bantam microRNA precursor family: an 85-nucleotide RNA from Tetranychus urticae. Its Rfam clan is "mir-81 clan". It scores 67 bits against the family's covariance model.
RNA sequence: AGGGACAAACAAAACUGGUUUUCACAAUGGUUUGACAGAAAACAUUUGAUUAUUCUGAGAUCAUUGUGAAAGCUGUUUCUGUAGU
Numbered sequence: 001a002g003g004g005a006c007a008a009a010c011a012a013a014a015c016u017g018g019u020u021u022u023c024a025c026a027a028u029g030g031u032u033u034g035a036c037a038g039a040a041a042a043c044a045u046u047u048g049a050u051u052a053u054u055c056u057g058a059g060a061u062c063a064u065u066g067u068g069a070a071a072g073c074u075g076u077u078u079c080u081g082u083a084g085u
Base pairs, nucleotide, nucleotide: 009082010081011080013078014077016075017074018073019072020071021070022069023068024067025066028063029062030061031060032059033058